[Rfam]
RNA sequence: CAAGGUCAAGGCCACAGCAGAAGUGCUCACAGCGCAGCCCAGUCUGAUUCCAACAAAUCUGCAAAUUCUGCU
Numbered sequence: 001c002a003a004g005g006u007c008a009a010g011g012c013c014a015c016a017g018c019a020g021a022a023g024u025g026c027u028c029a030c031a032g033c034g035c036a037g038c039c040c041a042g043u044c045u046g047a048u049u050c051c052a053a054c055a056a057a058u059c060u061g062c063a064a065a066u067u068c069u070g071c072u
Stems, first nucleotide, its partner, number of pairs: 010039003016072007023035003044061001046059004